[Rfam]
Shown here is a 69-nucleotide sequence from Krasilnikovia cinnamomea, a member of the family "ASpks TB sRNA".
Pairs were carried over by alignment from the consensus structure, which is taken from published work.
The family has 77 seed sequences and 9,052 matches in Rfam 15.1.
It scores 73 bits against the family's covariance model.

RNA sequence: CUUCAGCGAGCCCAGCAGCAGCGGCUCGGCCCGGUCCUGUCCGUACGUGGCCAGCAGCGCCUGCGCCUC
Numbered sequence: 001c002u003u004c005a006g007c008g009a010g011c012c013c014a015g016c017a018g019c020a021g022c023g024g025c026u027c028g029g030c031c032c033g034g035u036c037c038u039g040u041c042c043g044u045a046c047g048u049g050g051c052c053a054g055c056a057g058c059g060c061c062u063g064c065g066c067c068u069c
Stems, first nucleotide, its partner, number of pairs: 014026003029064002032059002037054003041050003
NCBI's taxonomy places the organism under Bacteria, Bacillati, Actinomycetota, Actinomycetes, Krasilnikovia.